[Rfam]
RNA: Actinobacteria sRNA Ms_IGR-5
RNA sequence: ACACGGGAAAGGAGGUGGUCCGAGGAAUGAUUUCUUCAAGGACGCGUGAGGUGGCUGCUCGCUAGCAGUCCCGCAGCACCCAGGACGGGCUGCUCGCGAAUACCAAGCAGUCACCCGACCCGCAGGUGAAACCGGAUCGUCCUCCGGCCCUGGCCCCCGCGCCACACCUGCGGGUCGCUGCGU
Numbered sequence: 001a002c003a004c005g006g007g008a009a010a011g012g013a014g015g016u017g018g019u020c021c022g023a024g025g026a027a028u029g030a031u032u033u034c035u036u037c038a039a040g041g042a043c044g045c046g047u048g049a050g051g052u053g054g055c056u057g058c059u060c061g062c063u064a065g066c067a068g069u070c071c072c073g074c075a076g077c078a079c080c081c082a083g084g085a086c087g088g089g090c091u092g093c094u095c096g097c098g099a100a101u102a103c104c105a106a107g108c109a110g111u112c113a114c115c116c117g118a119c120c121c122g123c124a125g126g127u128g129a130a131a132c133c134g135g136a137u138c139g140u141c142c143u144c145c146g147g148c149c150c151u152g153g154c155c156c157c158c159g160c161g162c163c164a165c166a167c168c169u170g171c172g173g174g175u176c177g178c179u180g181c182g183u
Stems, first nucleotide, its partner, number of pairs: 014059006060098003064094003068090004074084001116177013132147005
Dot-bracket structure: .............((((((..................................))))))(((.(((.((((..(.........)..)))).))).))).................(((((((((((((...(((((......))))).................)))))))))))))......